[Rfam]
The family of this 251-nucleotide sequence from Gossypium arboreum is "MIR6217 microRNA precursor family".
The match comes from Rfam's covariance-model search (110 bits).
Rfam links the family to the GO terms miRNA-mediated post-transcriptional gene silencing and RISC complex.
The family has 2 seed sequences and 2,266 matches in Rfam 15.1.
RNA sequence: UACGAAAAACACCAUCGGAUUUCAAAGUAGCACGAUCUAAUUCAAAAAUUUCACCCAAUUGAGCACGUCUAGCAUAUUUUUUCACAGUAGCAGGAUCACUAUAACUCACUCCAUUGAGUUCUAUGGCGGCGAACUCAAUGGAGUGAGUUAUAGUGAUCCUGCUACUGUGAAAAAAUAUGCUAGACGUUCUCAAUUGGGUGAAAUUUUUGAAUUAGAUCGUGCUACUUUGAAAUCCGAUGGUGUUUUUCGUA
Numbered sequence: 001u002a003c004g005a006a007a008a009a010c011a012c013c014a015u016c017g018g019a020u021u022u023c024a025a026a027g028u029a030g031c032a033c034g035a036u037c038u039a040a041u042u043c044a045a046a047a048a049u050u051u052c053a054c055c056c057a058a059u060u061g062a063g064c065a066c067g068u069c070u071a072g073c074a075u076a077u078u079u080u081u082u083c084a085c086a087g088u089a090g091c092a093g094g095a096u097c098a099c100u101a102u103a104a105c106u107c108a109c110u111c112c113a114u115u116g117a118g119u120u121c122u123a124u125g126g127c128g129g130c131g132a133a134c135u136c137a138a139u140g141g142a143g144u145g146a147g148u149u150a151u152a153g154u155g156a157u158c159c160u161g162c163u164a165c166u167g168u169g170a171a172a173a174a175a176u177a178u179g180c181u182a183g184a185c186g187u188u189c190u191c192a193a194u195u196g197g198g199u200g201a202a203a204u205u206u207u208u209g210a211a212u213u214a215g216a217u218c219g220u221g222c223u224a225c226u227u228u229g230a231a232a233u234c235c236g237a238u239g240g241u242g243u244u245u246u247u248c249g250u251a
Base pairs, nucleotide, nucleotide: 001251002250003249004248005247006246007245008244009243010242011241012240013239014238015237016236017235018234019233020232021231022230023229024228025227026226027225028224029223030222031221032220033219037215038214039213040212041211042210043209044208045207046206047205050202051201052200053199054198055197056196057195058194059193060192061191062190065187066186067185069183070182071181072180073179074178079171080170081169083167087165088164089163090162091161092160097155098154099153100152101151102150103149104148105147106146107145108144109143110142111141112140113139114138115137116136117135118134119133120132121131